RNA: RNA Staph. aureus D
Organism: Staphylococcus carnosus
RNA sequence: GUUUGCUAUAAUAAAUUUCAACUUCCUUAGUCAAUAGAUUAAGGAGGUUAUCUCCUUUGUGUUGUUUACAAUAAACAAACAAAAUUUUCGCUCGAAUGCACGUCCAGUACCUAGUCCUUACUGUUUACGUGUAUCAAAUUCAUUUCCCGUAAAAGACCAAGUAAUGAUUGUGUCUCCCCACAUUCAUAUACUUGGUCUUU
Number, nucleotide and partner (000 for none) at each position: 001g000002u000003u000004u000005g000006c000007u000008a000009u000010a000011a000012u000013a000014a000015a000016u000017u000018u050019c000020a049021a048022c047023u046024u045025c044026c043027u042028u041029a040030g039031u038032c037033a000034a000035u000036a000037g032038a031039u030040u029041a028042a027043g026044g025045a024046g023047g022048u021049u020050a018051u000052c000053u000054c000055c000056u083057u082058u081059g080060u079061g000062u077063u000064g000065u074066u073067u000068a000069c000070a000071a000072u000073a066074a065075a000076c000077a062078a000079a060080c059081a058082a057083a056084a000085u000086u000087u000088u000089c000090g000091c000092u000093c000094g000095a000096a000097u000098g132099c131100a130101c129102g128103u127104c000105c123106a000107g121108u120109a119110c000111c000112u000113a000114g000115u000116c000117c000118u000119u109120a108121c107122u000123g105124u000125u000126u000127a103128c102129g101130u100131g099132u098133a000134u000135c000136a000137a000138a000139u000140u000141c000142a000143u000144u000145u000146c000147c000148c000149g000150u000151a000152a000153a000154a000155g000156a000157c195158c194159a193160a192161g191162u190163a189164a187165u186166g185167a000168u000169u000170g000171u000172g000173u000174c000175u000176c000177c000178c000179c000180a000181c000182a000183u000184u000185c166186a165187u164188a000189u163190a162191c161192u160193u159194g158195g157196u000197c000198u000199u000200u000